RNA: Bacterial RNase P class A
Organism: Patiriisocius marinus
RNA sequence: GCAGCAGGCCGCCUUACCGUCGCCAAUUUUAAUUGGGGGAGGAAAGUCCGGGCACCAUAGGGAAGCAUAGCGGCUAACGGCCGUCGUCUUAAACUUGUUUUAAGAUAGGACAAGUGCAACAGAAAGUAUGUACAGGUAAUGCUGUAGUGAAACCAGGUAAACUCUAUGCGGUGAAAUGCCACGUAAACCAGCGCUAAGGGUUCCCGCCCGUGUUGGAGGGUAGGCAGAUUGAAUAGUGCGGUAACGUACUAUCUAGAUAAAUGGUAAGGAAUUUCUAGGAUAACUUAGAUUGAACAGAACCCGGCUUAUAGGCCUGCUUUUUUU
Numbered sequence: 001g002c003a004g005c006a007g008g009c010c011g012c013c014u015u016a017c018c019g020u021c022g023c024c025a026a027u028u029u030u031a032a033u034u035g036g037g038g039g040a041g042g043a044a045a046g047u048c049c050g051g052g053c054a055c056c057a058u059a060g061g062g063a064a065g066c067a068u069a070g071c072g073g074c075u076a077a078c079g080g081c082c083g084u085c086g087u088c089u090u091a092a093a094c095u096u097g098u099u100u101u102a103a104g105a106u107a108g109g110a111c112a113a114g115u116g117c118a119a120c121a122g123a124a125a126g127u128a129u130g131u132a133c134a135g136g137u138a139a140u141g142c143u144g145u146a147g148u149g150a151a152a153c154c155a156g157g158u159a160a161a162c163u164c165u166a167u168g169c170g171g172u173g174a175a176a177u178g179c180c181a182c183g184u185a186a187a188c189c190a191g192c193g194c195u196a197a198g199g200g201u202u203c204c205c206g207c208c209c210g211u212g213u214u215g216g217a218g219g220g221u222a223g224g225c226a227g228a229u230u231g232a233a234u235a236g237u238g239c240g241g242u243a244a245c246g247u248a249c250u251a252u253c254u255a256g257a258u259a260a261a262u263g264g265u266a267a268g269g270a271a272u273u274u275c276u277a278g279g280a281u282a283a284c285u286u287a288g289a290u291u292g293a294a295c296a297g298a299a300c301c302c303g304g305c306u307u308a309u310a311g312g313c314c315u316g317c318u319u320u321u322u323u324u
Stems, first nucleotide, its partner, number of pairs: 001320001003318008011309001012269007020039002023036005044307003048304005053173004060205004065169005070084005085108001086106008109164002114162002116158002131146005177226004188216005198208002233252008
Dot-bracket structure: (.((((((((((((((((.((.(((((....))))).))....[[[.[[[[[((((...[[[[.((((((((((.....)))))(((((((((.....)))))))).)((...((((.............(((((......)))))..........))..)))))))))))))...((((.......(((((.....((..]]]].))...)))))......))))......((((((((....))))))))..........)))))))..............................]]]]]]]].).)))))))).)....